[Rfam]
Rfam assigns this 122-nucleotide RNA from Brevundimonas sp. Root1423 to the family "SAM riboswitch aptamer (S box leader)". The organism belongs to Brevundimonas, within Bacteria. It scores 90 bits against the family's covariance model. Rfam 15.1 lists 9,625 matches to the family in 4,158 species.

RNA sequence: CACUCAUCAAGACCGGCGGAGGGAUAGGCCCUUUGAUGCCGGGGCAACCUUCCGGGAUUUCCCAAUCCCGGAGAUGGUGCCAACUCCUGCGAGGCGUCUUCGGAAGCCGCGAGAGAUGAGUG
Numbered sequence: 001c002a003c004u005c006a007u008c009a010a011g012a013c014c015g016g017c018g019g020a021g022g023g024a025u026a027g028g029c030c031c032u033u034u035g036a037u038g039c040c041g042g043g044g045c046a047a048c049c050u051u052c053c054g055g056g057a058u059u060u061c062c063c064a065a066u067c068c069c070g071g072a073g074a075u076g077g078u079g080c081c082a083a084c085u086c087c088u089g090c091g092a093g094g095c096g097u098c099u100u101c102g103g104a105a106g107c108c109g110c111g112a113g114a115g116a117u118g119a120g121u122g
Base pairs, nucleotide, nucleotide: 001122002121003120004119005118006117007116008115013042014041015040016039017038021031022030023029025089026088027087028086043081044080045079046078048077049076050073051072052071053070054069055068056067057066085114090111091110093108094107095106
Dot-bracket structure: ((((((((....(((((...(((.[[[[)))......)))))((((.((((((((((........))))))))..))))))...(]]]]((.(((..........))).))..)))))))))